About this RNA:
Molybdenum/Tungsten riboswitch aptamer (Moco RNA motif): a 121-nucleotide RNA sequence from Syntrophaceticus schinkii. The base pairs follow the family's consensus structure, which is taken from published work. Lineage of the source: Bacteria > Bacillati > Bacillota > Thermoanaerobacterales > Syntrophaceticus. The match comes from Rfam's covariance-model search (68 bits). Gene Ontology terms of the family: tungstate binding, regulation of gene expression and molybdenum ion binding.
[Rfam]
RNA sequence: GCUGGAUAGGCACUCCGAGCAUUCACACCUAAACUUUGGAUAAGCAGUGGUGUGUUGCCGAUAGGGUGUAGUGGGAAACUGCUGCACCUCCCGUUUGGAAAGGAGUGGGUUUUGAAAUGAA
Number, nucleotide and partner (000 for none) at each position: 001g000002c000003u115004g000005g000006a112007u000008a000009g000010g000011c107012a106013c105014u104015c103016c102017g000018a000019g058020c057021a056022u000023u000024c054025a053026c052027a051028c050029c049030u000031a000032a000033a000034c044035u043036u042037u000038g000039g000040a000041u000042a036043a035044g034045c000046a000047g000048u000049g029050g028051u027052g026053u025054g024055u000056u021057g020058c019059c000060g000061a000062u000063a000064g089065g088066g087067u086068g085069u084070a083071g082072u081073g080074g079075g000076a000077a000078a000079c074080u073081g072082c071083u070084g069085c068086a067087c066088c065089u064090c098091c097092c000093g000094u000095u000096u000097g091098g090099a000100a000101a000102g016103g015104a014105g013106u012107g011108g000109g000110u000111u000112u006113u000114g000115a003116a000117a000118u000119g000120a000121a000